[Rfam]
RNA: Flavo-1 RNA
Organism: Lacinutrix neustonica
RNA sequence: UUUUCGCUGCGUGAGGGAUAGAAGCGGCACCCUUUCUGUUUUUCACAGAAAGAUAUAGCGGAUAGCCCGACCUUUA
Numbered sequence: 001u002u003u004u005c006g007c008u009g010c011g012u013g014a015g016g017g018a019u020a021g022a023a024g025c026g027g028c029a030c031c032c033u034u035u036c037u038g039u040u041u042u043u044c045a046c047a048g049a050a051a052g053a054u055a056u057a058g059c060g061g062a063u064a065g066c067c068c069g070a071c072c073u074u075u076a
Base pairs, nucleotide, nucleotide: 015068016067017066019064020063024059025058029054031052035049036048037047038046039045